[Rfam]
Nucleotides: 105
Stems, first nucleotide, its partner, number of pairs: 008098006020037004039085003042081002046079003052072007
Number, partner (000 for none) and nucleotide at each position: 001000g002000g003000a004000c005000g006000g007000a008098c009097c010096u011095c012094u013093g014000g015000a016000g017000a018000g019000c020037u021036u022035c023034c024000u025000c026000c027000c028000c029000c030000g031000g032000g033000a034023g035022g036021a037020a038000c039085a040084c041083c042081g043080a044000c045000g046079g047078g048077g049000c050000a051000a052072g053071u054070u055069u056068u057067c058066c059000g060000g061000a062000a063000a064000a065000a066058g067057g068056g069055a070054a071053a072052u073000g074000a075000a076000a077048c078047u079046c080043u081042c082000a083041g084040g085039u086000u087000c088000c089000a090000g091000g092000a093013c094012a095011g096010a097009g098008g099000a100000g101000a102000u103000g104000g105000u

The record is a 105-nucleotide RNA sequence from Desulfofundulus thermobenzoicus, which matches "Glycine riboswitch aptamer" in Rfam. Taxonomically the source falls in Desulfofundulus (Bacteria, Bacillati, Bacillota, Eubacteriales). Its family is annotated with glycine biosynthetic process in the Gene Ontology. It scores 57 bits against the family's covariance model. Rfam's curators write: This family represents the bacterial glycine riboswitch.